The family of this 152-nucleotide RNA from Microlunatus kandeliicorticis is "FMN riboswitch aptamer (RFN element)". The family's consensus secondary structure is taken from published work. A search with the family's covariance model found it, with a score of 86 bits. Rfam's curators write: The RFN element is a highly conserved domain that is found frequently in the 5'-untranslated regions of prokaryotic mRNAs that encode for flavin mononucleotide (FMN) biosynthesis and transport proteins.

RNA sequence: CGCGUGUUCCGGGGUCGGUGCAAUUCCGAACCGGCGGUGACAGUCCGCGACCCGGCUCCUGAUCGGCUCCGCUCCGGCGGCGGCGGUCGGGAACGGUUGACGUGGUGGAAUUCCACGACCGACGGUGAAAGUCCGGAUGGGAGGUUCACGCG
Numbered sequence: 001c002g003c004g005u006g007u008u009c010c011g012g013g014g015u016c017g018g019u020g021c022a023a024u025u026c027c028g029a030a031c032c033g034g035c036g037g038u039g040a041c042a043g044u045c046c047g048c049g050a051c052c053c054g055g056c057u058c059c060u061g062a063u064c065g066g067c068u069c070c071g072c073u074c075c076g077g078c079g080g081c082g083g084c085g086g087u088c089g090g091g092a093a094c095g096g097u098u099g100a101c102g103u104g105g106u107g108g109a110a111u112u113c114c115a116c117g118a119c120c121g122a123c124g125g126u127g128a129a130a131g132u133c134c135g136g137a138u139g140g141g142a143g144g145u146u147c148a149c150g151c152g
Base pairs, nucleotide, nucleotide: 003150004149005148006147009144010143016028017027018026030132031131032121033120034048035047036046037045043119044118052096053095101117102116103115104114105113123135124134125133